[Rfam]
Shown here is a 117-nucleotide RNA sequence from Desulfosarcina widdelii, a member of the family "c-di-GMP-I-GGC riboswitch aptamer". Lineage of the source: Bacteria > Pseudomonadati > Thermodesulfobacteriota > Desulfobacterales > Desulfosarcina. The match comes from Rfam's covariance-model search (60 bits). Its Rfam clan is "c-di-GMP_I riboswitch clan". The family has 40 seed sequences and 1,298 matches in Rfam 15.1. On this family, see Weinberg et al., Proc Natl Acad Sci U S A 2017: "Bioinformatic analysis of riboswitch structures uncovers variant classes with altered ligand specificity".

RNA sequence: UUCCUAAAAGCCAAACCCAUUGCAAAAUCGGGACGGAAAACCACGGGUCUCAAUAAUCCCGUUGCGUCGCUGAUAUUCCUGAACUUGGGUUAACCUGAGACAGCCGGGCUGCCGACA
Numbered sequence: 001u002u003c004c005u006a007a008a009a010g011c012c013a014a015a016c017c018c019a020u021u022g023c024a025a026a027a028u029c030g031g032g033a034c035g036g037a038a039a040a041c042c043a044c045g046g047g048u049c050u051c052a053a054u055a056a057u058c059c060c061g062u063u064g065c066g067u068c069g070c071u072g073a074u075a076u077u078c079c080u081g082a083a084c085u086u087g088g089g090u091u092a093a094c095c096u097g098a099g100a101c102a103g104c105c106g107g108g109c110u111g112c113c114g115a116c117a
Base pairs, nucleotide, nucleotide: 001117003114011036012035016031017030019028020027021026034103039110041108042107044106045105046104047101048100049099050098051097052096